The record is a 67-nucleotide sequence, which matches "Pistol ribozyme" in Rfam. Pairs were carried over by alignment from the consensus structure, which is taken from published work.
RNA sequence: AGUCGACUAAGCGACUAUAAACAGGCAUUAGGCUUAGAGCGUUCCAGUCUUCGGACUGGAGGUUGUU
Numbered sequence: 001a002g003u004c005g006a007c008u009a010a011g012c013g014a015c016u017a018u019a020a021a022c023a024g025g026c027a028u029u030a031g032g033c034u035u036a037g038a039g040c041g042u043u044c045c046a047g048u049c050u051u052c053g054g055a056c057u058g059g060a061g062g063u064u065g066u067u
Stems, first nucleotide, its partner, number of pairs: 001016004007037005024067004032040001042061008